[Rfam]
Rfam assigns this 255-nucleotide part of an RNA from Thermoplasmatales archaeon E-plasma to the family "Archaeal large subunit ribosomal RNA". The source organism's lineage runs through Archaea, Methanobacteriati, Thermoplasmatota, Thermoplasmata and Thermoplasmatales. Rfam links the family to the GO terms structural constituent of ribosome and ribosome.

RNA sequence: GAGUUUUGUCGAGUGGCGAGGUUAACUCAUUUUGAGGUAGCCGUAGCGAAAGCGAAGUAUCCGCACAGCAAUGGAGGGAUUGCGUAAUAAAUGCGUUAGUCACUUGAGGAAGACCCGAAUCCGGUCGAUCUACGCCUGAGUAAGUUGAAGCUAUGCGAAAGCAUGGUGGAGGACUGAACCGGUUCUGAUGUGCAAAUCGUUCGGAUGACUUGGGUGUAGGGGUUAAAGGCUAAUCUAGGCCGGUAAUAGCGGGUU
Numbered sequence: 001g002a003g004u005u006u007u008g009u010c011g012a013g014u015g016g017c018g019a020g021g022u023u024a025a026c027u028c029a030u031u032u033u034g035a036g037g038u039a040g041c042c043g044u045a046g047c048g049a050a051a052g053c054g055a056a057g058u059a060u061c062c063g064c065a066c067a068g069c070a071a072u073g074g075a076g077g078g079a080u081u082g083c084g085u086a087a088u089a090a091a092u093g094c095g096u097u098a099g100u101c102a103c104u105u106g107a108g109g110a111a112g113a114c115c116c117g118a119a120u121c122c123g124g125u126c127g128a129u130c131u132a133c134g135c136c137u138g139a140g141u142a143a144g145u146u147g148a149a150g151c152u153a154u155g156c157g158a159a160a161g162c163a164u165g166g167u168g169g170a171g172g173a174c175u176g177a178a179c180c181g182g183u184u185c186u187g188a189u190g191u192g193c194a195a196a197u198c199g200u201u202c203g204g205a206u207g208a209c210u211u212g213g214g215u216g217u218a219g220g221g222g223u224u225a226a227a228g229g230c231u232a233a234u235c236u237a238g239g240c241c242g243g244u245a246a247u248a249g250c251g252g253g254u255u
Base pairs, nucleotide, nucleotide: 005111006110007109009107010106011105012104013103014102015101016100017099020042021041022040023039026036027035028034029033046053047052059080060079061078062077066073067072083095084094085093086092114253115252117250121243122242123241124240125239126238130219131218132217133216134215135214136213137212138211139210140209141207143175144174145173146172150167151166152165153164154163155162156161179204180203181202182201185199187198188197221231222230223229
The match comes from Rfam's covariance-model search (2733 bits).